The family of this 81-nucleotide sequence from Catagonus wagneri is "Small nucleolar RNA SNORD115". On this family, see Cavaille et al., Proc Natl Acad Sci U S A 2000: "Identification of brain-specific and imprinted small nucleolar RNA genes exhibiting an unusual genomic organization". It scores 96 bits against the family's covariance model. Gene Ontology terms of the family: nucleolus and RNA processing.
RNA sequence: GGGUCGAUGAUGAUAACUCAUAUUGACAUGAAGAGAGAUGAUUACAUAAAAAUCAUGCUCAAUAGGAUUACGCUGAGACCC
Numbered sequence: 001g002g003g004u005c006g007a008u009g010a011u012g013a014u015a016a017c018u019c020a021u022a023u024u025g026a027c028a029u030g031a032a033g034a035g036a037g038a039u040g041a042u043u044a045c046a047u048a049a050a051a052a053u054c055a056u057g058c059u060c061a062a063u064a065g066g067a068u069u070a071c072g073c074u075g076a077g078a079c080c081c
Stems, first nucleotide, its partner, number of pairs: 001081004005075002008072002